[Rfam]
RNA sequence: AUUAUUAUUUCCAUCAUUCCCGAAAUGGUGGGUUAGCCAGCGACCGCAUUCAGUCACAGCCACCCGCCCAGACAGGCGGGUUUU
Numbered sequence: 001a002u003u004a005u006u007a008u009u010u011c012c013a014u015c016a017u018u019c020c021c022g023a024a025a026u027g028g029u030g031g032g033u034u035a036g037c038c039a040g041c042g043a044c045c046g047c048a049u050u051c052a053g054u055c056a057c058a059g060c061c062a063c064c065c066g067c068c069c070a071g072a073c074a075g076g077c078g079g080g081u082u083u084u
Stems, first nucleotide, its partner, number of pairs: 011031007062081007
The record is an 84-nucleotide sequence from Achromobacter sp. AONIH1, which matches "Pseudomonas sRNA P9" in Rfam. It is annotated as a non-coding RNA gene. This small RNA (sRNA) was computationally identified in the genome of the opportunistic pathogen Pseudomonas aeruginosa and its expression verified by northern blot analysis. P9 appears to be conserved in several Pseudomonas species in addition to Bordetella spp. In both Pseudomonas and Bordetella spp P9 appears to be located upstream of a predicted threonine dehydratase gene. The source organism's lineage runs through Bacteria, Pseudomonadati, Pseudomonadota, Betaproteobacteria and Achromobacter. It scores 59 bits against the family's covariance model. On this family, see Livny et al., Nucleic Acids Res 2006: "Identification of 17 Pseudomonas aeruginosa sRNAs and prediction of sRNA-encoding genes in 10 diverse pathogens using the bioinformatic tool sRNAPredict2". The family's consensus secondary structure was predicted with RNAalifold.